Overview: Shown here is a 49-nucleotide RNA sequence from Pararhodobacter aggregans, a member of the family "SAM/SAH riboswitch aptamer".
[Rfam]
RNA sequence: CUCCUGUCACAACGGCUUCCUGGCGUGACGGGCGACAUGCAAUGGAGCA
Numbered sequence: 001c002u003c004c005u006g007u008c009a010c011a012a013c014g015g016c017u018u019c020c021u022g023g024c025g026u027g028a029c030g031g032g033c034g035a036c037a038u039g040c041a042a043u044g045g046a047g048c049a
Base pairs, nucleotide, nucleotide: 004031005030006029007028008027009026010025013022014021015048016047017046019045020044

A search with the family's covariance model found it, with a score of 57 bits.
Gene Ontology terms of the family: S-adenosylmethionine metabolic process and regulation of gene expression.